[Rfam]
RNA sequence: AUACUUACCUGGACGGGGUCAAUGGGUGAUCAUGAAGGCUCAUGGCCUAGGCUAGUGACCUCCAUUGCACUCUGGAGGGGUGCUCGCUUAAGAUCUCCCCAAGAGGUAGAGUUUACGUCAUAAUUUGUUGCAGGGGGGUUUGCGUACGCGCAGCCCCCAC
Numbered sequence: 001a002u003a004c005u006u007a008c009c010u011g012g013a014c015g016g017g018g019u020c021a022a023u024g025g026g027u028g029a030u031c032a033u034g035a036a037g038g039c040u041c042a043u044g045g046c047c048u049a050g051g052c053u054a055g056u057g058a059c060c061u062c063c064a065u066u067g068c069a070c071u072c073u074g075g076a077g078g079g080g081u082g083c084u085c086g087c088u089u090a091a092g093a094u095c096u097c098c099c100c101a102a103g104a105g106g107u108a109g110a111g112u113u114u115a116c117g118u119c120a121u122a123a124u125u126u127g128u129u130g131c132a133g134g135g136g137g138g139u140u141u142g143c144g145u146a147c148g149c150g151c152a153g154c155c156c157c158c159a160c
Base pairs, nucleotide, nucleotide: 012119013118014117015116016048017047018046019045020044021043023042024041025040026039027038049089050088051087053086055083056082057081059079060078061077062075063074091114092113093112094110095109096108098106099105134158135157136156137155141152142151143150144149
Dot-bracket structure: ...........((((((((((.(((((..........)))))))))))(((.(.(((.(((((..........)).))).)))..)))).((((((.((.....)).))).))).))))..............((((...((((....))))..))))..
The family of this 160-nucleotide RNA from Rosa chinensis is "U1 spliceosomal RNA". The base pairs follow the family's consensus structure, which is taken from published work. The literature on the family includes a 1997 paper in Nucleic Acids Res by Zwieb, "The uRNA database". Lineage of the source: Eukaryota > Viridiplantae > Spermatophyta > Rosoideae > Rosa. Rfam describes the family as follows. U1 is a small nuclear RNA (snRNA) component of the spliceosome (involved in pre-mRNA splicing). Its 5' end forms complementary base pairs with the 5' splice junction, thus defining the 5' donor site of an intron. There are significant differences in sequence and secondary structure between metazoan and yeast U1 snRNAs, the latter being much longer (568 nucleotides as compared to 164 nucleotides in human). Nevertheless, secondary structure predictions suggest that all U1 snRNAs share a 'common core' consisting of helices I, II, the proximal region of III, and IV. This family does not contain the larger yeast sequences. A search with the family's covariance model found it, with a score of 136 bits. Its family is annotated with pre-mRNA 5'-splice site binding, U1 snRNP and mRNA 5'-splice site recognition in the Gene Ontology.